[Rfam]
This 72-nucleotide RNA from Coturnix japonica belongs to the Rfam family "Small nucleolar RNA SNORD42". snoRNA U42 is found in intron 3 of the ribosomal protein L23a (RPL23a) gene in humans and is also present in mice. Gene Ontology terms of the family: nucleolus and RNA processing. NCBI's taxonomy places the organism under Eukaryota, Metazoa, Eumetazoa, Dipnotetrapodomorpha, Coturnix. A search with the family's covariance model found it, with a score of 45 bits. The family's consensus secondary structure was predicted with PFOLD.

RNA sequence: GUGCAGAUGAUGUGAACAAUUGGUUUUGUACCACUGAGUAAACUGAUGUUUCCAAAGGAACCACUGAUGCAC
Numbered sequence: 001g002u003g004c005a006g007a008u009g010a011u012g013u014g015a016a017c018a019a020u021u022g023g024u025u026u027u028g029u030a031c032c033a034c035u036g037a038g039u040a041a042a043c044u045g046a047u048g049u050u051u052c053c054a055a056a057g058g059a060a061c062c063a064c065u066g067a068u069g070c071a072c
Base pairs, nucleotide, nucleotide: 001072002071003070004069005068